c-di-GMP-I riboswitch aptamer: a 93-nucleotide sequence from Psychrobacillus sp. FJAT-21963. Pairs were carried over by alignment from the consensus structure, which is taken from published work. NCBI's taxonomy places the organism under Bacteria, Bacillati, Bacillota, Bacilli, Psychrobacillus. The match comes from Rfam's covariance-model search (66 bits).
RNA sequence: AAGUGAAAAAGGCAAACCACGAGAAAUCGUGUGACGCAAAGCCAAGGGCCUGGACCACGCUAAGUGCUAUGUGGAUGGCAGCCGGUUACCGCA
Numbered sequence: 001a002a003g004u005g006a007a008a009a010a011g012g013c014a015a016a017c018c019a020c021g022a023g024a025a026a027u028c029g030u031g032u033g034a035c036g037c038a039a040a041g042c043c044a045a046g047g048g049c050c051u052g053g054a055c056c057a058c059g060c061u062a063a064g065u066g067c068u069a070u071g072u073g074g075a076u077g078g079c080a081g082c083c084g085g086u087u088a089c090c091g092c093a
Stems, first nucleotide, its partner, number of pairs: 012037002018031005040087004046083002048079003055074004